Description
The family of this 101-nucleotide RNA sequence from Streptomyces qinzhouensis is "Group II catalytic intron D1-D4-1". The organism belongs to Streptomyces, within Bacteria. From the family's description: Group II introns are found in rRNA, tRNA and mRNA of organelles in fungi, plants and protists, and also in mRNA in bacteria.
[Rfam]
RNA sequence: CGUGCGGCGCGGUGACGCGCCGUGCCGAACCGAGAGAUGUCAGCCGGCUAUCGGCUGACGUCAGCCGAGGUCAGCGGACGUCGACGAAGUCCGCGACGGAC
Numbered sequence: 001c002g003u004g005c006g007g008c009g010c011g012g013u014g015a016c017g018c019g020c021c022g023u024g025c026c027g028a029a030c031c032g033a034g035a036g037a038u039g040u041c042a043g044c045c046g047g048c049u050a051u052c053g054g055c056u057g058a059c060g061u062c063a064g065c066c067g068a069g070g071u072c073a074g075c076g077g078a079c080g081u082c083g084a085c086g087a088a089g090u091c092c093g094c095g096a097c098g099g100a101c
Stems, first nucleotide, its partner, number of pairs: 001027002004023008040068002070101003074094006

The match comes from Rfam's covariance-model search (36 bits).